[Rfam]
RNA: t44 RNA
RNA sequence: GUCCGAAAGCCUAAACCCCACACACGUGUCGACACGAUGGCCUGGGUGCCUCUCAGUAGUUCCUUAUAAAGAACGGCUGGGGGUUGGUCAUUGGGAUACGUGGAGGCCUAAC
Numbered sequence: 001g002u003c004c005g006a007a008a009g010c011c012u013a014a015a016c017c018c019c020a021c022a023c024a025c026g027u028g029u030c031g032a033c034a035c036g037a038u039g040g041c042c043u044g045g046g047u048g049c050c051u052c053u054c055a056g057u058a059g060u061u062c063c064u065u066a067u068a069a070a071g072a073a074c075g076g077c078u079g080g081g082g083g084u085u086g087g088u089c090a091u092u093g094g095g096a097u098a099c100g101u102g103g104a105g106g107c108c109u110a111a112c
Stems, first nucleotide, its partner, number of pairs: 023102008035093008048084005